[Rfam]
RNA sequence: UGACGUUCUCGGGGCGGGGUGAAAUUCCCCACCGGCGGUAAUGAUGGAUUUCGGUCCAUCUCAGCCCGCGAGCGCCUUCUUCCUUUCAGGGAGAAGGGUCAAGCAGAUCCGGUGAGAUUCCGGAGCCGACGGUCACAGUCCGGAUGAGAGAGAACGCAA
Numbered sequence: 001u002g003a004c005g006u007u008c009u010c011g012g013g014g015c016g017g018g019g020u021g022a023a024a025u026u027c028c029c030c031a032c033c034g035g036c037g038g039u040a041a042u043g044a045u046g047g048a049u050u051u052c053g054g055u056c057c058a059u060c061u062c063a064g065c066c067c068g069c070g071a072g073c074g075c076c077u078u079c080u081u082c083c084u085u086u087c088a089g090g091g092a093g094a095a096g097g098g099u100c101a102a103g104c105a106g107a108u109c110c111g112g113u114g115a116g117a118u119u120c121c122g123g124a125g126c127c128g129a130c131g132g133u134c135a136c137a138g139u140c141c142g143g144a145u146g147a148g149a150g151a152g153a154a155c156g157c158a159a
Stems, first nucleotide, its partner, number of pairs: 004156007017029003031139002033128002035069004064126002072104002108124005130142003
A member of the RNA family "FMN riboswitch aptamer (RFN element)" from Gluconobacter morbifer, 159 nucleotides long. Gene Ontology term of the family: FMN binding. About the family: The RFN element is a highly conserved domain that is found frequently in the 5'-untranslated regions of prokaryotic mRNAs that encode for flavin mononucleotide (FMN) biosynthesis and transport proteins. This element is a metabolite-dependent riboswitch that directly binds FMN in the absence of proteins. In Bacillus subtilis, the riboswitch most likely controls gene expression by causing premature transcription termination within the 5' untranslated region of the ribDEAHT operon and precluding access to the ribosome-binding site of ypaA mRNA.The FMN riboswitch structure, reported in present an FMN-bound six-stem junction, adopts a butterfly-like scaffold, stapled together by opposingly directed but nearly identically folded peripheral domains. Pairs were carried over by alignment from the consensus structure, which is taken from published work. The match comes from Rfam's covariance-model search (118 bits).